TPP riboswitch aptamer (THI element): a 107-nucleotide sequence from Desulfuromusa kysingii. Taxonomically the source falls in Desulfuromusa (Bacteria, Pseudomonadati, Desulfuromonadales, Geopsychrobacteraceae). The family's consensus secondary structure is taken from published work.
[Rfam]
RNA sequence: AUUACACGCUAGGGGCGUCUUAGUUACUGAGAGUUCCAUUUUUUUUGGAAUAACCCUUGGAACCUGAUCCGGUUGAUACCGGCGUAGGGAAGCGGCAAUGAAAACCG
Number, nucleotide and partner (000 for none) at each position: 001a000002u000003u000004a000005c000006a000007c094008g093009c092010u091011a057012g056013g055014g054015g000016c000017g027018u026019c000020u000021u000022a000023g000024u000025u000026a018027c017028u000029g000030a000031g000032a000033g000034u050035u049036c048037c047038a046039u000040u000041u000042u000043u000044u000045u000046u038047g037048g036049a035050a034051u000052a000053a000054c014055c013056c012057u011058u000059g000060g000061a000062a000063c088064c087065u086066g085067a000068u000069c082070c081071g080072g079073u000074u000075g000076a000077u000078a000079c072080c071081g070082g069083c000084g000085u066086a065087g064088g063089g000090a000091a010092g009093c008094g007095g000096c000097a000098a000099u000100g000101a000102a000103a000104a000105c000106c000107g000